[Rfam]
RNA sequence: GCUGGGGGGGGAGGUGCAUUCCCUUAUCACCCGGGUGGGGGCUGGUAGUUGGAAGCUUUGCAUGAUUAUAUCGGUCCAGACUGUCUGCGUCGAUGGCGUGUCCGCUCUGAGCCUACAGUCGGUAACGGCCCUUCCCUGACGUGAGGUGGCCGUGGCUGAUAAUUGACUCGGGACCGCGUGAGGCAGUAAUGUGAGCAGCGAACACGGGUAGCUGCGGGCGGCAGACGGGUCGCAUGCCUGAGUGGGCGGCUAGGCCAGAGGACCUCUGCGGGGCAACCAACUGUUUU
Number, nucleotide and partner (000 for none) at each position: 001g042002c041003u040004g025005g022006g021007g020008g019009g000010g017011g000012a000013g000014g000015u000016g000017c010018a000019u008020u007021c006022c005023c000024u000025u004026a000027u000028c000029a000030c039031c038032c037033g000034g000035g000036u000037g032038g031039g030040g003041g002042c001043u000044g285045g284046u283047a282048g281049u280050u279051g278052g277053a000054a000055g274056c273057u272058u271059u270060g269061c268062a265063u000064g263065a000066u261067u260068a000069u000070a000071u000072c000073g256074g255075u254076c253077c000078a251079g000080a000081c249082u248083g247084u246085c245086u244087g243088c242089g000090u240091c000092g000093a000094u000095g238096g237097c236098g235099u234100g233101u232102c228103c227104g000105c000106u225107c224108u223109g222110a000111g219112c218113c217114u216115a000116c214117a213118g212119u211120c158121g157122g156123u155124a000125a153126c152127g151128g150129c149130c148131c146132u145133u144134c143135c000136c141137u000138g000139a000140c000141g136142u000143g134144a133145g132146g131147u000148g130149g129150c128151c127152g126153u125154g000155g123156c122157u121158g120159a163160u000161a000162a000163u159164u000165g000166a209167c208168u207169c206170g205171g000172g000173a000174c000175c000176g000177c200178g199179u198180g000181a000182g000183g000184c193185a192186g000187u000188a000189a000190u000191g000192u185193g184194a000195g000196c000197a000198g179199c178200g177201a000202a000203c000204a000205c170206g169207g168208g167209u166210a000211g119212c118213u117214g116215c000216g114217g113218g112219c111220g000221g000222c109223a108224g107225a106226c000227g103228g102229g000230u000231c000232g101233c100234a099235u098236g097237c096238c095239u000240g090241a000242g088243u087244g086245g085246g084247c083248g082249g081250c000251u078252a000253g076254g075255c074256c073257a000258g000259a000260g067261g066262a000263c064264c000265u062266c000267u000268g061269c060270g059271g058272g057273g056274c055275a000276a000277c052278c051279a050280a049281c048282u047283g046284u045285u044286u000287u000
Record summary: The record is a 287-nucleotide RNA sequence from Volvox reticuliferus, which matches "Metazoan signal recognition particle RNA" in Rfam. The base pairs follow the family's consensus structure, which is taken from published work. The match comes from Rfam's covariance-model search (90 bits).